[Rfam]
RNA sequence: CACAAGCGGUGAUGAAGAUGACUUGGAUGUCACAGUCCUGAAAAUAACAUGUGGGUUUUUUGUCACUACCUCUUCUGAGCUUGGU
Numbered sequence: 001c002a003c004a005a006g007c008g009g010u011g012a013u014g015a016a017g018a019u020g021a022c023u024u025g026g027a028u029g030u031c032a033c034a035g036u037c038c039u040g041a042a043a044a045u046a047a048c049a050u051g052u053g054g055g056u057u058u059u060u061u062g063u064c065a066c067u068a069c070c071u072c073u074u075c076u077g078a079g080c081u082u083g084g085u
Base pairs, nucleotide, nucleotide: 003083004082005081006080007079
Dot-bracket structure: ..(((((.......................................................................)))))..

Background
The family of this 85-nucleotide RNA sequence from Danio rerio is "Small nucleolar RNA SNORD11B". Its Rfam clan is "SNORD11 clan". Taxonomically the source falls in Danio (Eukaryota, Teleostomi, Cypriniformes, Cyprinoidei). A reference for the family is Yang et al. (2006), "snoSeeker: an advanced computational package for screening of guide and orphan snoRNA genes in the human genome", Nucleic Acids Res. A search with the family's covariance model found it, with a score of 56 bits. It is annotated as a C/D-box small nucleolar RNA.